A member of the RNA family "Metazoan signal recognition particle RNA" from Ladona fulva, 299 nucleotides long. Rfam classes the family as a non-coding RNA gene. Its family is annotated with signal recognition particle, endoplasmic reticulum targeting and SRP-dependent cotranslational protein targeting to membrane, signal sequence recognition in the Gene Ontology. Clan: SRP clan. The signal recognition particle (SRP) is a universally conserved ribonucleoprotein. It is involved in the co-translational targeting of proteins to membranes. The eukaryotic SRP consists of a 300-nucleotide 7S RNA and six proteins: SRPs 72, 68, 54, 19, 14, and 9. Taxonomically the source falls in Ladona (Eukaryota, Opisthokonta, Mandibulata, Insecta).
[Rfam]
RNA sequence: GCUGGGAGUGGUGGCGUACUCCUGUAAUCCAGCUACUUGGAGGCUUGGUGUAGAGGAUGAUUUGAGGCCGGGGGUCCUGUCUGUGGGUUGUCCCACGUUGACUGGACGUCCGCACUAAGCCCGGCAUCUACAUGGGCACCCUGAAGGAGUUUGGGGUGGCCAGGUUGCCUAAGGAGGGGCGAACCGGGCCAGGGGGGAAACCCAGCAGCCAAAAGUCCCCGUGGCGGGCAGUAGUGGGAUCGCGUCCGGGAGUGGGAGCCCAUGGGCAGCCCGACCGAUAUAAUCAGACCUGUACCUUU
Numbered sequence: 001g002c003u004g005g006g007a008g009u010g011g012u013g014g015c016g017u018a019c020u021c022c023u024g025u026a027a028u029c030c031a032g033c034u035a036c037u038u039g040g041a042g043g044c045u046u047g048g049u050g051u052a053g054a055g056g057a058u059g060a061u062u063u064g065a066g067g068c069c070g071g072g073g074g075u076c077c078u079g080u081c082u083g084u085g086g087g088u089u090g091u092c093c094c095a096c097g098u099u100g101a102c103u104g105g106a107c108g109u110c111c112g113c114a115c116u117a118a119g120c121c122c123g124g125c126a127u128c129u130a131c132a133u134g135g136g137c138a139c140c141c142u143g144a145a146g147g148a149g150u151u152u153g154g155g156g157u158g159g160c161c162a163g164g165u166u167g168c169c170u171a172a173g174g175a176g177g178g179g180c181g182a183a184c185c186g187g188g189c190c191a192g193g194g195g196g197g198a199a200a201c202c203c204a205g206c207a208g209c210c211a212a213a214a215g216u217c218c219c220c221g222u223g224g225c226g227g228g229c230a231g232u233a234g235u236g237g238g239a240u241c242g243c244g245u246c247c248g249g250g251a252g253u254g255g256g257a258g259c260c261c262a263u264g265g266g267c268a269g270c271c272c273g274a275c276c277g278a279u280a281u282a283a284u285c286a287g288a289c290c291u292g293u294a295c296c297u298u299u
Stems, first nucleotide, its partner, number of pairs: 001044003004023007028041003047296007058286005066276002069273004077269013092256005098250001102249008110238002113236005119229005125223003128167001130165002133162003137158009168174002176219005187210003194203003